[Rfam]
RNA sequence: GCGUGUGUAGUAAAGUGGUCAGUACCUCACCUUGUGGCGGUGAUAUCCCUGGUUCGAAUCCGGGCACGCGCA
Number, nucleotide and partner (000 for none) at each position: 001g071002c070003g069004u068005g067006u066007g065008u000009a000010g025011u024012a023013a000014a000015g000016u000017g000018g000019u000020c000021a000022g000023u012024a011025c010026c000027u043028c042029a041030c040031c039032u000033u000034g000035u000036g000037g000038c000039g031040g030041u029042g028043a027044u000045a000046u000047c000048c064049c063050u062051g061052g060053u000054u000055c000056g000057a000058a000059u000060c052061c051062g050063g049064g048065c007066a006067c005068g004069c003070g002071c001072a000
Notes: Rfam assigns this 72-nucleotide RNA from Bremia lactucae to the family "tRNA". The family's RNA type in Rfam is transfer RNA. The match comes from Rfam's covariance-model search (56 bits). Transfer RNA (tRNA) molecules are approximately 80 nucleotides in length. Their secondary structure includes four short double-helical elements and three loops (D, anti-codon, and T loops). Further hydrogen bonds mediate the characteristic L-shaped molecular structure. tRNAs have two regions of fundamental functional importance: the anti-codon, which is responsible for specific mRNA codon recognition, and the 3' end, to which the tRNAs corresponding amino acid is attached (by aminoacyl-tRNA synthetases). tRNAs cope with the degeneracy of the genetic code in two manners: having more than one tRNA (with a specific anti-codon) for a particular amino acid; and 'wobble' base-pairing, i.e. permitting non-standard base-pairing at the 3rd anti-codon position. The family's consensus secondary structure is taken from published work.